Shown here is an 89-nucleotide RNA from Branchiostoma lanceolatum, a member of the family "mir-2060 microRNA precursor family". Pairs were carried over by alignment from the consensus structure, which was predicted with RNAalifold.
RNA sequence: GUAAGUGGGUAGUGUUCAGCACCAGGGACAGGUGUGUUUACCUGUGUGAGGAGAGUGGUAUUCAGCACCAGGGGCAGCCAUUUUCAACU
Dot-bracket structure: ((.......(.(((((.((.((((.(.(((((((....))))))).)........)))).)).))))).)...))..............
Numbered sequence: 001g002u003a004a005g006u007g008g009g010u011a012g013u014g015u016u017c018a019g020c021a022c023c024a025g026g027g028a029c030a031g032g033u034g035u036g037u038u039u040a041c042c043u044g045u046g047u048g049a050g051g052a053g054a055g056u057g058g059u060a061u062u063c064a065g066c067a068c069c070a071g072g073g074g075c076a077g078c079c080a081u082u083u084u085c086a087a088c089u
Stems, first nucleotide, its partner, number of pairs: 001075002010070001012068005018062002021059004026047001028045007
Background
A search with the family's covariance model found it, with a score of 57 bits.